[Rfam]
RNA sequence: UGCUAACUAUAAUGGCCAUAGCAAAAGCAUUCAUAUCAUUGCCCCUGUCAGAUUCCAAUGAAUUUGUGAAUUCUGCU
Numbered sequence: 001u002g003c004u005a006a007c008u009a010u011a012a013u014g015g016c017c018a019u020a021g022c023a024a025a026a027g028c029a030u031u032c033a034u035a036u037c038a039u040u041g042c043c044c045c046u047g048u049c050a051g052a053u054u055c056c057a058a059u060g061a062a063u064u065u066g067u068g069a070a071u072u073c074u075g076c077u
Base pairs, nucleotide, nucleotide: 014043015042016041020077021076022075023074025072026071027039049066050065051064052063053062054061055060